[Rfam]
RNA sequence: AAUUUUGAGUAGGCGCGGCUAGCUUAUGUUAGCUGAGGAAAGUCCACGCACACACAGACUGCGAUGUUUGUAGUGAUCGUAUUCAGCCUAACAAGCUGGAGGGAGACGUUAGUCUUCACGGCGGAAAAAGUGCUAAAUCUUCGGACAUGCAUUACUAUCCUGAAAAGUGCCACAGUGACGAAGCAAGGUCAGAAAUGACUUUGGUGGAACGAGGUAAACCCUGCGAGUGUGAAACCCAAAUUUGGUGGGGGAGUUUCGGCCUAAGGAAAUGAACUAAAGGUCGGAUUAUUGCUUUAAGCAGUAAAGAUAGAUGACUACUGAAGGUAAUCUUUGCCAGAGAUUAUUGGAACAAAACGUGGCUUAUAGAA
Numbered sequence: 001a002a003u004u005u006u007g008a009g010u011a012g013g014c015g016c017g018g019c020u021a022g023c024u025u026a027u028g029u030u031a032g033c034u035g036a037g038g039a040a041a042g043u044c045c046a047c048g049c050a051c052a053c054a055c056a057g058a059c060u061g062c063g064a065u066g067u068u069u070g071u072a073g074u075g076a077u078c079g080u081a082u083u084c085a086g087c088c089u090a091a092c093a094a095g096c097u098g099g100a101g102g103g104a105g106a107c108g109u110u111a112g113u114c115u116u117c118a119c120g121g122c123g124g125a126a127a128a129a130g131u132g133c134u135a136a137a138u139c140u141u142c143g144g145a146c147a148u149g150c151a152u153u154a155c156u157a158u159c160c161u162g163a164a165a166a167g168u169g170c171c172a173c174a175g176u177g178a179c180g181a182a183g184c185a186a187g188g189u190c191a192g193a194a195a196u197g198a199c200u201u202u203g204g205u206g207g208a209a210c211g212a213g214g215u216a217a218a219c220c221c222u223g224c225g226a227g228u229g230u231g232a233a234a235c236c237c238a239a240a241u242u243u244g245g246u247g248g249g250g251g252a253g254u255u256u257c258g259g260c261c262u263a264a265g266g267a268a269a270u271g272a273a274c275u276a277a278a279g280g281u282c283g284g285a286u287u288a289u290u291g292c293u294u295u296a297a298g299c300a301g302u303a304a305a306g307a308u309a310g311a312u313g314a315c316u317a318c319u320g321a322a323g324g325u326a327a328u329c330u331u332u333g334c335c336a337g338a339g340a341u342u343a344u345u346g347g348a349a350c351a352a353a354a355c356g357u358g359g360c361u362u363a364u365a366g367a368a
Base pairs, nucleotide, nucleotide: 004368005367006366007364008319009318010317011316012315014313016035017034018033019032020031021030040362041361042360044359045358046357047356048355049231050230051229052228053227054071055070056069057068058067059066077226078225079224080223081222082100083099084098085097086096087095101119102117103116104115105114106113107112120221121220123160124159125158130152131151132150133149138145139144167219168218169215170214171213184203185202186201187200188199189198190197191196235250236249237248255285256284257283258282259281260280261279286304287303288302289301290300291299323345324344325343326342327341328340329339330338331337
Background:
The record is a 368-nucleotide RNA sequence from Lactobacillus crispatus, which matches "Bacterial RNase P class B" in Rfam. Its Rfam clan is "RNaseP clan". The family's RNA type in Rfam is ribozyme. Ribonuclease P (RNase P) is a ubiquitous endoribonuclease, found in archaea, bacteria and eukarya as well as chloroplasts and mitochondria. The source organism's lineage runs through Bacteria, Lactobacillales, Lactobacillaceae, Lactobacillus and Lactobacillus crispatus.